[Rfam]
The record is a 105-nucleotide RNA sequence from Erythrobacter sp. THAF29, which matches "Repression of heat shock gene expression (ROSE) element" in Rfam. The match comes from Rfam's covariance-model search (55 bits). The family has 13 seed sequences and 381 matches in Rfam 15.1. By type it is an RNA thermoregulator. Taxonomically the source falls in Erythrobacter (Bacteria, Pseudomonadati, Alphaproteobacteria, Erythrobacteraceae). Gene Ontology terms of the family: response to temperature stimulus and regulation of translation. This family represents a 5' UTR cis-regulatory element found in heat shock mRNAs and is known as the ROSE (repression of heat shock gene expression) element. The ROSE element is a negative regulator of heat shock gene expression.
RNA sequence: CCGGAUGCCAUAACGGGUCCGGUUGGACAUUAGAGCGUCAGCUCUUUCGUUCGCUGGCGCUUCUCGUGCCCAGAUUGCUCAAUAAGGAGGAUUUGGAAAUGAGAA
Numbered sequence: 001c002c003g004g005a006u007g008c009c010a011u012a013a014c015g016g017g018u019c020c021g022g023u024u025g026g027a028c029a030u031u032a033g034a035g036c037g038u039c040a041g042c043u044c045u046u047u048c049g050u051u052c053g054c055u056g057g058c059g060c061u062u063c064u065c066g067u068g069c070c071c072a073g074a075u076u077g078c079u080c081a082a083u084a085a086g087g088a089g090g091a092u093u094u095g096g097a098a099a100u101g102a103g104a105a
Stems, first nucleotide, its partner, number of pairs: 001022006008016002033062010063103005070096007078089003